The family of this 116-nucleotide RNA from Papaver somniferum is "Plastid-psbA-1 3UTR RNA". The family's RNA type in Rfam is cis-regulatory element.

[Rfam]
RNA sequence: AGUAAAUCCUUUCAAUAAAAGGUACAUUUUUUUAUGGAAAUAAAACAAUAGUAAAACUAAAUGAAGGAGCAAUACCGACCCUCUUAUUCUAUCAAGAGGGUCGGUAUUGCUCCUUC
Number, nucleotide and partner (000 for none) at each position: 001a000002g000003u000004a000005a000006a000007u000008c000009c022010u021011u020012u019013c000014a000015a000016u000017a000018a000019a012020a011021g010022g009023u000024a000025c000026a000027u000028u000029u000030u000031u000032u000033u000034a000035u000036g000037g000038a000039a000040a000041u000042a000043a000044a000045a000046c000047a000048a000049u000050a000051g000052u000053a000054a000055a000056a000057c000058u000059a000060a000061a000062u000063g116064a115065a114066g113067g112068a111069g110070c109071a108072a107073u106074a105075c104076c000077g102078a101079c100080c000081c098082u097083c096084u095085u094086a000087u000088u000089c000090u000091a000092u000093c000094a085095a084096g083097a082098g081099g000100g079101u078102c077103g000104g075105u074106a073107u072108u071109g070110c069111u068112c067113c066114u065115u064116c063
Rfam's curators write: Plastid psbA-1 is a non-coding RNA (ncRNA) present in plastids. It was identified in inverted repeat sequences in the 3 prime untranslate region (3UTR) of photosystem II quinone-binding protein (psbA). Clan: Plastid-psbA 3UTR RNA clan. Pairs were carried over by alignment from the consensus structure, which was predicted with LocARNA.